[Rfam]
RNA sequence: UUUUAGUGAAACCAUAAGUUUCCGUGCUUAAUUUUAACUGUUUAUUUUAUUUAAAUUUUUUUUAUAAUUAGUAUUUUUGUUGUUAUGAGAUGAUAAAACAUAAGUAUUACUUUAUGCGUGACUUAUGUUUUUAUUUUUUUUCAAAUAAAAAGGACGAUUAAAGUUAGAUAUAAAAACUCAUGGCUGCACUUAAA
Numbered sequence: 001u002u003u004u005a006g007u008g009a010a011a012c013c014a015u016a017a018g019u020u021u022c023c024g025u026g027c028u029u030a031a032u033u034u035u036a037a038c039u040g041u042u043u044a045u046u047u048u049a050u051u052u053a054a055a056u057u058u059u060u061u062u063u064a065u066a067a068u069u070a071g072u073a074u075u076u077u078u079g080u081u082g083u084u085a086u087g088a089g090a091u092g093a094u095a096a097a098a099c100a101u102a103a104g105u106a107u108u109a110c111u112u113u114a115u116g117c118g119u120g121a122c123u124u125a126u127g128u129u130u131u132u133a134u135u136u137u138u139u140u141u142c143a144a145a146u147a148a149a150a151a152g153g154a155c156g157a158u159u160a161a162a163g164u165u166a167g168a169u170a171u172a173a174a175a176a177c178u179c180a181u182g183g184c185u186g187c188a189c190u191u192a193a194a
Stems, first nucleotide, its partner, number of pairs: 028167010039156005045150006
The family of this 194-nucleotide sequence from Oryza sativa is "MIR812 microRNA precursor family". Pairs were carried over by alignment from the consensus structure, which was predicted with RNAalifold. It is one of the family's seed sequences.